[Rfam]
RNA sequence: UGUUUCAACUGUUGCAUCUUGCUGCCUUUAGAACCUUCCAUCCAUAAAGCAGCAGUAUGCAAUGGUGAAAAA
Numbered sequence: 001u002g003u004u005u006c007a008a009c010u011g012u013u014g015c016a017u018c019u020u021g022c023u024g025c026c027u028u029u030a031g032a033a034c035c036u037u038c039c040a041u042c043c044a045u046a047a048a049g050c051a052g053c054a055g056u057a058u059g060c061a062a063u064g065g066u067g068a069a070a071a072a
Base pairs, nucleotide, nucleotide: 003070004069005068006067007066009065010064011063012062013061014060015059016058017057019055020054021053022052023051024050025049027048028047029046030045
Dot-bracket structure: ..(((((.(((((((((.(((((((.((((..............))))))))))).))))))))))))))..
Notes
The family of this 72-nucleotide RNA from Branchiostoma belcheri is "mir-2067 microRNA precursor family". NCBI's taxonomy places the organism under Eukaryota, Metazoa, Deuterostomia, Amphioxiformes, Branchiostoma.